The family of this 134-nucleotide RNA sequence from Microbispora rosea is "c-di-AMP riboswitch aptamer (ydaO/yuaA leader)". It scores 89 bits against the family's covariance model. Gene Ontology terms of the family: cyclic-di-AMP binding and regulation of gene expression.
RNA sequence: GCCGCCCGGCCGCCGAGUCCGCGUCCGCGCGGAGCCGGGGACCCACCUCUCUUGGGGUGAAUCGGCAUGCCUGCCGUAGGGCGACUUCCGGCCCGAACCCGUCAGCUAACCCGGUAGGCGGCAUGGAAGUAAGG
Numbered sequence: 001g002c003c004g005c006c007c008g009g010c011c012g013c014c015g016a017g018u019c020c021g022c023g024u025c026c027g028c029g030c031g032g033a034g035c036c037g038g039g040g041a042c043c044c045a046c047c048u049c050u051c052u053u054g055g056g057g058u059g060a061a062u063c064g065g066c067a068u069g070c071c072u073g074c075c076g077u078a079g080g081g082c083g084a085c086u087u088c089c090g091g092c093c094c095g096a097a098c099c100c101g102u103c104a105g106c107u108a109a110c111c112c113g114g115u116a117g118g119c120g121g122c123a124u125g126g127a128a129g130u131a132a133g134g
Stems, first nucleotide, its partner, number of pairs: 011120004018033005034115006044054002055100003063076004079094004